[Rfam]
RNA sequence: CCAUGUCCCGACGCAAUCCCCCCCCGGCGCCGGGACUUUCCCAGAGUCGGGCUUCGGCGCCCAUCCCCCCGGGUGCCGGAGCCCGGCUCGCCC
Numbered sequence: 001c002c003a004u005g006u007c008c009c010g011a012c013g014c015a016a017u018c019c020c021c022c023c024c025c026g027g028c029g030c031c032g033g034g035a036c037u038u039u040c041c042c043a044g045a046g047u048c049g050g051g052c053u054u055c056g057g058c059g060c061c062c063a064u065c066c067c068c069c070c071g072g073g074u075g076c077c078g079g080a081g082c083c084c085g086g087c088u089c090g091c092c093c
Stems, first nucleotide, its partner, number of pairs: 005036006012029003044089010055078008
Rfam assigns this 93-nucleotide RNA sequence from Streptomyces adustus to the family "Streptomyces RNA 3202".
Taxonomically the source falls in Streptomyces (Bacteria, Bacillati, Actinomycetes, Kitasatosporales).
A search with the family's covariance model found it, with a score of 77 bits.
It is annotated as a small RNA.
About the family: Identified by deep sequencing of transcriptome at the end of exponential growth phase.